[Rfam]
RNA sequence: UAGCUAUGACGAACUUGUGUCCACUGUGGUAGUUGGGUCUAUCACACUCCUCUGAUCUUCAGAAGAUUCGUGACACAUCUGAGCUA
Numbered sequence: 001u002a003g004c005u006a007u008g009a010c011g012a013a014c015u016u017g018u019g020u021c022c023a024c025u026g027u028g029g030u031a032g033u034u035g036g037g038u039c040u041a042u043c044a045c046a047c048u049c050c051u052c053u054g055a056u057c058u059u060c061a062g063a064a065g066a067u068u069c070g071u072g073a074c075a076c077a078u079c080u081g082a083g084c085u086a
Base pairs, nucleotide, nucleotide: 001086002085003084004083